Rfam assigns this 72-nucleotide RNA sequence from Eutypa lata to the family "tRNA". Rfam classes the family as a transfer RNA. Rfam's curators write: Transfer RNA (tRNA) molecules are approximately 80 nucleotides in length. Their secondary structure includes four short double-helical elements and three loops (D, anti-codon, and T loops). Further hydrogen bonds mediate the characteristic L-shaped molecular structure. tRNAs have two regions of fundamental functional importance: the anti-codon, which is responsible for specific mRNA codon recognition, and the 3' end, to which the tRNAs corresponding amino acid is attached (by aminoacyl-tRNA synthetases). tRNAs cope with the degeneracy of the genetic code in two manners: having more than one tRNA (with a specific anti-codon) for a particular amino acid; and 'wobble' base-pairing, i.e. permitting non-standard base-pairing at the 3rd anti-codon position. A search with the family's covariance model found it, with a score of 61 bits.
RNA sequence: GGGAUAUUAGCAUAAGGGUAAUGCAUAUGACUUUUAAUCAUCAUUAUGUGAGUUCGAAUCUCGUAUAUCCUA
Dot-bracket structure: (((((((..((((.......))))..((((.......))))......(((((.......)))))))))))).